[Rfam]
RNA sequence: UUGGGCUAGGUUUGUGGUUGAAAGUCGAUGCCAGUCGCAGGCGAAACGAUCCACGUAAGUUAAAUAAAAUAUUUAAUGAGCACGGUGCGGCUUAGAGGUAAGUCCUGCCGCCAUAAAUGCGAGAGGAUUAGUAAUGAGAGGGUAAAUCCGGGUAGUGAAAAUUCCAGCAGGCGAGUGUGGGGUCAAAGACCAGGUCAGCUAGCUUGA
Numbered sequence: 001u002u003g004g005g006c007u008a009g010g011u012u013u014g015u016g017g018u019u020g021a022a023a024g025u026c027g028a029u030g031c032c033a034g035u036c037g038c039a040g041g042c043g044a045a046a047c048g049a050u051c052c053a054c055g056u057a058a059g060u061u062a063a064a065u066a067a068a069a070u071a072u073u074u075a076a077u078g079a080g081c082a083c084g085g086u087g088c089g090g091c092u093u094a095g096a097g098g099u100a101a102g103u104c105c106u107g108c109c110g111c112c113a114u115a116a117a118u119g120c121g122a123g124a125g126g127a128u129u130a131g132u133a134a135u136g137a138g139a140g141g142g143u144a145a146a147u148c149c150g151g152g153u154a155g156u157g158a159a160a161a162u163u164c165c166a167g168c169a170g171g172c173g174a175g176u177g178u179g180g181g182g183u184c185a186a187a188g189a190c191c192a193g194g195u196c197a198g199c200u201a202g203c204u205u206g207a
Stems, first nucleotide, its partner, number of pairs: 001207009012198003015192005028178003031041001033092007050085002058077001060075001062073002104171005109121003125164004134156002140149003
RNA: raiA RNA
Organism: Clostridium luticellarii